[Rfam]
RNA sequence: AAAAAGCUGAAUACGGUCACUCAUAUAUGUUUGAUAAUAUGGAUCGAACGUUUCUACCUUGUUACCGUAAAUAACAAGACUAUGAGUAAAAAGUAAAUCUAG
Numbered sequence: 001a002a003a004a005a006g007c008u009g010a011a012u013a014c015g016g017u018c019a020c021u022c023a024u025a026u027a028u029g030u031u032u033g034a035u036a037a038u039a040u041g042g043a044u045c046g047a048a049c050g051u052u053u054c055u056a057c058c059u060u061g062u063u064a065c066c067g068u069a070a071a072u073a074a075c076a077a078g079a080c081u082a083u084g085a086g087u088a089a090a091a092a093g094u095a096a097a098u099c100u101a102g
Stems, first nucleotide, its partner, number of pairs: 019087007029049007058078007
The family of this 102-nucleotide RNA from Priestia veravalensis is "Purine riboswitch aptamer".
The base pairs follow the family's consensus structure, which is taken from published work.
It scores 88 bits against the family's covariance model.
Taxonomically the source falls in Priestia (Bacteria, Bacilli, Caryophanales, Bacillaceae).
About the family: Riboswitches are metabolite binding domains within certain messenger RNAs that serve as precision sensors for their corresponding targets. Allosteric rearrangement of mRNA structure is mediated by ligand binding, and this results in modulation of gene expression. A class of riboswitches that selectively recognises guanine and becomes saturated at concentrations as low as 5 nM. In Bacillus subtilis, this mRNA motif is located on at least five separate transcriptional units that together encode 17 genes that are mostly involved in purine transport and purine nucleotide biosynthesis. It has also been shown that some members of this family are specific for adenine instead. Hence this family are termed purine riboswitches.
Clan: Purine riboswitches.